[Rfam]
RNA sequence: GAAGUUCGCCAGGCAAUCGCUGGAUGCUCUGCAUCUGGAGGAAAGUCCGGGCCCCAUAGAGCGGGAUGCUGGCUAACGGCCAGGCGUUAUAAGUAGCGGCAACGCUACCCAAGGCGACAGACAGUGCAACAGAAAGAUACCGCCUAAGCUCGCAAGAGCCGGUAAGGGUGAAAUGGCGGGGUAAGAGCCCACCGCGGACCUGGCGACAGGGACGGCACGGCAAACCUCAUCCGGGGCAAGGCCAAAUAGGGGAGCAAUGACGUGGCUCGCGUCGCUCCCGGGUAGGCUGCUUGAGGCCGUCGGUAACGGCGGUCCCAGAGGAAUGAUUGCCCACGACAGAACCCGGCUUAUCGGCGGACUUCCCAC
Numbered sequence: 001g002a003a004g005u006u007c008g009c010c011a012g013g014c015a016a017u018c019g020c021u022g023g024a025u026g027c028u029c030u031g032c033a034u035c036u037g038g039a040g041g042a043a044a045g046u047c048c049g050g051g052c053c054c055c056a057u058a059g060a061g062c063g064g065g066a067u068g069c070u071g072g073c074u075a076a077c078g079g080c081c082a083g084g085c086g087u088u089a090u091a092a093g094u095a096g097c098g099g100c101a102a103c104g105c106u107a108c109c110c111a112a113g114g115c116g117a118c119a120g121a122c123a124g125u126g127c128a129a130c131a132g133a134a135a136g137a138u139a140c141c142g143c144c145u146a147a148g149c150u151c152g153c154a155a156g157a158g159c160c161g162g163u164a165a166g167g168g169u170g171a172a173a174u175g176g177c178g179g180g181g182u183a184a185g186a187g188c189c190c191a192c193c194g195c196g197g198a199c200c201u202g203g204c205g206a207c208a209g210g211g212a213c214g215g216c217a218c219g220g221c222a223a224a225c226c227u228c229a230u231c232c233g234g235g236g237c238a239a240g241g242c243c244a245a246a247u248a249g250g251g252g253a254g255c256a257a258u259g260a261c262g263u264g265g266c267u268c269g270c271g272u273c274g275c276u277c278c279c280g281g282g283u284a285g286g287c288u289g290c291u292u293g294a295g296g297c298c299g300u301c302g303g304u305a306a307c308g309g310c311g312g313u314c315c316c317a318g319a320g321g322a323a324u325g326a327u328u329g330c331c332c333a334c335g336a337c338a339g340a341a342c343c344c345g346g347c348u349u350a351u352c353g354g355c356g357g358a359c360u361u362c363c364c365a366c
Stems, first nucleotide, its partner, number of pairs: 001362010011351001012331007020038008043349003047346005052236004059268004064232005069083005084118001085116004119227002124225002126221002140167002142163003148159004175193002178190003194216001195214002199210004240288004250279006259273005295314008
RNA: Bacterial RNase P class A